[Rfam]
This 221-nucleotide RNA from Ensifer meliloti belongs to the Rfam family "Group II catalytic intron D1-D4-6". Rfam 15.1 lists 1,617 matches to the family in 661 species. Rfam describes the family as follows. Group II introns are found in rRNA, tRNA and mRNA of organelles in fungi, plants and protists, and also in mRNA in bacteria. Pairs were carried over by alignment from the consensus structure. Taxonomically the source falls in Ensifer (Bacteria, Pseudomonadati, Pseudomonadota, Hyphomicrobiales). Rfam's curators put it in the seed alignment.

RNA sequence: GAAGUCCGUCACGAUGAAGGAGUAGCAAACCACAUCGGCCCUGAGCCAUGCGCAGGCGCUCGCGAGGGCGUCGGCGAAGCGUUGGCAGGGGAGCAUGUAGGCCAGCCAUUGAGCCGCGAAAUCGCCUCAUCUUGGAUGCCGACGCCGUUGUCAUGGCGGAAGGCAACAUGGGAAGGUGCGCUACUGCGAGCACCCGACCAAUCCGGCGCGGUCGUAGACCC
Dot-bracket structure: ...........(((((..((..[.[[...)).))))).((((..(((((((((.(((((((....))))))).)))...)).)))).))))...................(.((((((.............(((((((((..((((........))))...)))....(((...(((((......]].])))))...))))))))))))))))........
Numbered sequence: 001g002a003a004g005u006c007c008g009u010c011a012c013g014a015u016g017a018a019g020g021a022g023u024a025g026c027a028a029a030c031c032a033c034a035u036c037g038g039c040c041c042u043g044a045g046c047c048a049u050g051c052g053c054a055g056g057c058g059c060u061c062g063c064g065a066g067g068g069c070g071u072c073g074g075c076g077a078a079g080c081g082u083u084g085g086c087a088g089g090g091g092a093g094c095a096u097g098u099a100g101g102c103c104a105g106c107c108a109u110u111g112a113g114c115c116g117c118g119a120a121a122u123c124g125c126c127u128c129a130u131c132u133u134g135g136a137u138g139c140c141g142a143c144g145c146c147g148u149u150g151u152c153a154u155g156g157c158g159g160a161a162g163g164c165a166a167c168a169u170g171g172g173a174a175g176g177u178g179c180g181c182u183a184c185u186g187c188g189a190g191c192a193c194c195c196g197a198c199c200a201a202u203c204c205g206g207c208g209c210g211g212u213c214g215u216a217g218a219c220c221c
Stems, first nucleotide, its partner, number of pairs: 012037005019031002023189001025187002039091004045086004049081002051076003055072007111213001113212006132206006138164003143158004169200003175194005